This 72-nucleotide RNA sequence belongs to the Rfam family "Small nucleolar RNA SNORD113/SNORD114 family".
[Rfam]
RNA sequence: UGGAUCAAUGAUGAGUACCCUGGGGUGUCUGAAUCUUGGAUUUUGAUUAAACCCUAUAACUCUGAGGUCCAU
Number, nucleotide and partner (000 for none) at each position: 001u000002g070003g069004a068005u067006c066007a000008a000009u000010g000011a000012u000013g000014a000015g000016u000017a000018c000019c000020c000021u000022g000023g000024g000025g000026u000027g000028u000029c000030u000031g000032a000033a000034u000035c000036u000037u000038g000039g000040a000041u000042u000043u000044u000045g000046a000047u000048u000049a000050a000051a000052c000053c000054c000055u000056a000057u000058a000059a000060c000061u000062c000063u000064g000065a000066g006067g005068u004069c003070c002071a000072u000
The imprinted human domain at 14q32 contains two clusters of tandemly repeated small nucleolar RNAs named 14q(I) and 14q(II) snoRNAs. These two clusters are named SNORD113 and SNORD114 respectively in the HGNC approved gene symbol nomenclature. The snoRNAs found in both clusters are clearly related and are represented here by a single family. These snoRNAs are intron encoded and are processed from the tissue-specific non-coding human MEG8 RNA, which lies downstream of the imprinted genes DLK1 and GTL2. snoRNAs 14q(I) and 14q(II) differ from previously identified C/D box snoRNAs in their expression profiles and lack of complementarity to rRNA and snRNA. Homologues of these snoRNAs are found in the imprinted non-coding mouse transcript Rian, and in the rat non-coding Bsr (brain-specific repetitive) RNA. Rfam 15.1 lists 5,721 matches to the family in 142 species. It is one of the family's seed sequences. Gene Ontology terms of the family: RNA processing and nucleolus. The literature on the family includes a 2002 paper in Hum Mol Genet by Cavaille et al., "Identification of tandemly-repeated C/D snoRNA genes at the imprinted human 14q32 domain reminiscent of those at the Prader-Willi/Angelman syndrome region".